[Rfam]
Description
Shown here is a 102-nucleotide sequence from Durio zibethinus, a member of the family "MIR398 microRNA precursor family". Its family is annotated with miRNA-mediated post-transcriptional gene silencing and RISC complex in the Gene Ontology.
RNA sequence: AGGAGCCCAACAGGGGCGACAUGGGAUCACAUACGGUCAGUCUUAGAUUGAAACCUUGUCCACUGUCCUGAUGUGUUCUCAGUUCGCCCCUGCAGGGCUUCC
Numbered sequence: 001a002g003g004a005g006c007c008c009a010a011c012a013g014g015g016g017c018g019a020c021a022u023g024g025g026a027u028c029a030c031a032u033a034c035g036g037u038c039a040g041u042c043u044u045a046g047a048u049u050g051a052a053a054c055c056u057u058g059u060c061c062a063c064u065g066u067c068c069u070g071a072u073g074u075g076u077u078c079u080c081a082g083u084u085c086g087c088c089c090c091u092g093c094a095g096g097g098c099u100u101c102c
Stems, first nucleotide, its partner, number of pairs: 007096002011092004016087004023080004028075005